[Rfam]
RNA sequence: UGGCUUGAACAGGGACCUGGAAACGAGGGACUCCGUGAGGAAGAGGGCCAUGGGGCGGUGACCAUGCCGAAGACAAAGGAGUCAAACUCUUCCGAUCACCGCGGGAACCUGCCGCGUCAGAAUCAAGGUAGUGACGCAUCCGAAAUGGGACAAGAAUUAAGCCAACAUCAAAUAUAUGUAGGACAAUUAAAAGAGGCUUCAAAGAUACGAGGAGUAAAGGUUAAAGGUAAUGAUUUGUUUAAAUUUUUGAUUUUGUAAAAGACACUUGCCCUU
Numbered sequence: 001u002g003g004c005u006u007g008a009a010c011a012g013g014g015a016c017c018u019g020g021a022a023a024c025g026a027g028g029g030a031c032u033c034c035g036u037g038a039g040g041a042a043g044a045g046g047g048c049c050a051u052g053g054g055g056c057g058g059u060g061a062c063c064a065u066g067c068c069g070a071a072g073a074c075a076a077a078g079g080a081g082u083c084a085a086a087c088u089c090u091u092c093c094g095a096u097c098a099c100c101g102c103g104g105g106a107a108c109c110u111g112c113c114g115c116g117u118c119a120g121a122a123u124c125a126a127g128g129u130a131g132u133g134a135c136g137c138a139u140c141c142g143a144a145a146u147g148g149g150a151c152a153a154g155a156a157u158u159a160a161g162c163c164a165a166c167a168u169c170a171a172a173u174a175u176a177u178g179u180a181g182g183a184c185a186a187u188u189a190a191a192a193g194a195g196g197c198u199u200c201a202a203a204g205a206u207a208c209g210a211g212g213a214g215u216a217a218a219g220g221u222u223a224a225a226g227g228u229a230a231u232g233a234u235u236u237g238u239u240u241a242a243a244u245u246u247u248u249g250a251u252u253u254u255g256u257a258a259a260a261g262a263c264a265c266u267u268g269c270c271c272u273u
Base pairs, nucleotide, nucleotide: 004028005027006026033047034046036044088127090126091125096122097120100116101115102114103113104112136151139149140148141147142146158201160199161197162196163195208249209248210247211246213245214244215243218236219235220234221233222232223231258273259272261270263268
RNA: Mason-Pfizer monkey virus packaging signal
Organism: Macaca fascicularis